[Rfam]
RNA sequence: CGGCUCUUCCUAUCAUACCGAGGCAGAACUCGGUAAGUGUUGGAUUGUUCACCCACUAAUAGGGAACGUGAGCUGGGUUUAGACCGUCGUGAGACAGGUUAGUU
Numbered sequence: 001c002g003g004c005u006c007u008u009c010c011u012a013u014c015a016u017a018c019c020g021a022g023g024c025a026g027a028a029c030u031c032g033g034u035a036a037g038u039g040u041u042g043g044a045u046u047g048u049u050c051a052c053c054c055a056c057u058a059a060u061a062g063g064g065a066a067c068g069u070g071a072g073c074u075g076g077g078u079u080u081a082g083a084c085c086g087u088c089g090u091g092a093g094a095c096a097g098g099u100u101a102g103u104u
Base pairs, nucleotide, nucleotide: 001076002074003073004072005071006068007065008064009063010062011061014039015038017034018033019032020031021030022029041055042054043053045051082100083099084098085097086095087094088093

The record is a 104-nucleotide part of an RNA from Smittium mucronatum, which matches "Eukaryotic large subunit ribosomal RNA" in Rfam. Its family is annotated with structural constituent of ribosome and ribosome in the Gene Ontology. The source organism's lineage runs through Eukaryota, Opisthokonta, Fungi, Kickxellomycota and Smittium.